[Rfam]
RNA sequence: AUGCAUCUCCGAGGAGUGACCUGACAACGCAGGCGGUGUUCCCUCGCCUCGCGCUAUCGUAUCAGUACCUGUGUUUUCAGGUCACCCCUUCGAGAUGAUC
Numbered sequence: 001a002u003g004c005a006u007c008u009c010c011g012a013g014g015a016g017u018g019a020c021c022u023g024a025c026a027a028c029g030c031a032g033g034c035g036g037u038g039u040u041c042c043c044u045c046g047c048c049u050c051g052c053g054c055u056a057u058c059g060u061a062u063c064a065g066u067a068c069c070u071g072u073g074u075u076u077u078c079a080g081g082u083c084a085c086c087c088c089u090u091c092g093a094g095a096u097g098a099u100c
Base pairs, nucleotide, nucleotide: 007094008093011090012089013088014087016085017084018083019082023078024077026075027074028073029072030071031070032069
RNA: MIR398 microRNA precursor family